[Rfam]
RNA sequence: CUCUGGAAAGCGGUGUGCGCCGGCGACGGCGGACACCCACCGACGAAGUAAGGUCCGAUCGCCGACGGCGGUGUGACGGCCGAAUCUUUCAGGUCUCCGGACAGAG
Numbered sequence: 001c002u003c004u005g006g007a008a009a010g011c012g013g014u015g016u017g018c019g020c021c022g023g024c025g026a027c028g029g030c031g032g033a034c035a036c037c038c039a040c041c042g043a044c045g046a047a048g049u050a051a052g053g054u055c056c057g058a059u060c061g062c063c064g065a066c067g068g069c070g071g072u073g074u075g076a077c078g079g080c081c082g083a084a085u086c087u088u089u090c091a092g093g094u095c096u097c098c099g100g101a102c103a104g105a106g
Base pairs, nucleotide, nucleotide: 001106002105003104004103005102012037013036014035015034039094040093041092042090043089046088047087048086052081053080054079055078
A member of the RNA family "Glycine riboswitch aptamer" from Enhydrobacter aerosaccus, 106 nucleotides long. Lineage of the source: Bacteria > Pseudomonadati > Pseudomonadota > Hyphomicrobiales > Enhydrobacter. The match comes from Rfam's covariance-model search (40 bits).